RNA sequence: GUUCGUCUUCAGGGGCAGGGUGAAAAUCCCGACCGGUGGUGAUAGUCCACGAACUGCGCAAGCAGCUGACUCGGUGUGAUUCCGAGACCGACAGUACAGUCUGGAUAAAGAAGAUAGGC
Numbered sequence: 001g002u003u004c005g006u007c008u009u010c011a012g013g014g015g016c017a018g019g020g021u022g023a024a025a026a027u028c029c030c031g032a033c034c035g036g037u038g039g040u041g042a043u044a045g046u047c048c049a050c051g052a053a054c055u056g057c058g059c060a061a062g063c064a065g066c067u068g069a070c071u072c073g074g075u076g077u078g079a080u081u082c083c084g085a086g087a088c089c090g091a092c093a094g095u096a097c098a099g100u101c102u103g104g105a106u107a108a109a110g111a112a113g114a115u116a117g118g119c
Stems, first nucleotide, its partner, number of pairs: 003117001005115006018030003032100002034090002036050004045088002054065002070086005092103003